[Rfam]
Small nucleolar RNA SNORA3/SNORA45 family: a 129-nucleotide RNA from Odocoileus virginianus. Its family is annotated with nucleolus and RNA processing in the Gene Ontology. For this family Rfam cites "RNomics: an experimental approach that identifies 201 candidates for novel, small, non-messenger RNAs in mouse" (Huttenhofer et al., EMBO J, 2001). Lineage of the source: Eukaryota > Euteleostomi > Laurasiatheria > Artiodactyla > Odocoileus virginianus. The family's consensus secondary structure was predicted with RNAalifold. About the family: The members of this family belong to the H/ACA class of snoRNAs which are thought to guide the sites of modification of uridines to pseudouridines. The family is grouped with related families in Rfam's "SNORA3 clan".
RNA sequence: AUCGAGGCUAGGGUCACACUUGGUUAUCGGCUGUUGCCUUAGUGUGCUGGAGUCCUUGAAGGGUAACUGCUGGCCGUGUUCACUGGCUGUGACCCUCAUCGCAUAGUCAUCACCACGUUAGUAACAUGC
Dot-bracket structure: .((((((((..((.((((((..(.((........)).)..))))))))..))).)))))..........(((((...(...(.(((.((((.(.......))))).))))..)...)))))........